[Rfam]
RNA sequence: UAACGUUUGACUCUUCGUUUUAUUUAAAAAUUUUCUACGAUUAGUGUUUUUAUUAUUAUUAGAUGAUAAAAUAUGAAUAGUAUUUUAUACGUGACUAUUUUUUUUACUUUUGUAUAAAAUUUUCAAAUAAAACGGAUGGUCAAACGUUA
Number, nucleotide and partner (000 for none) at each position: 001u149002a148003a147004c146005g000006u144007u143008u142009g141010a140011c139012u138013c000014u136015u135016c134017g133018u132019u131020u130021u129022a128023u127024u000025u000026a000027a000028a000029a000030a000031u000032u000033u000034u000035c000036u000037a000038c000039g000040a000041u000042u000043a000044g000045u000046g000047u000048u000049u000050u000051u000052a000053u000054u000055a000056u000057u000058a000059u000060u000061a000062g000063a000064u000065g000066a000067u000068a000069a000070a000071a000072u000073a000074u000075g000076a000077a000078u000079a000080g000081u000082a000083u000084u000085u000086u000087a000088u000089a000090c000091g000092u000093g000094a000095c000096u000097a000098u000099u000100u000101u000102u000103u000104u000105u000106a000107c000108u000109u000110u000111u000112g000113u000114a000115u000116a000117a000118a000119a000120u000121u000122u000123u000124c000125a000126a000127a023128u022129a021130a020131a019132a018133c017134g016135g015136a014137u000138g012139g011140u010141c009142a008143a007144a006145c000146g004147u003148u002149a001
RNA: MIR812 microRNA precursor family
Organism: Oryza rufipogon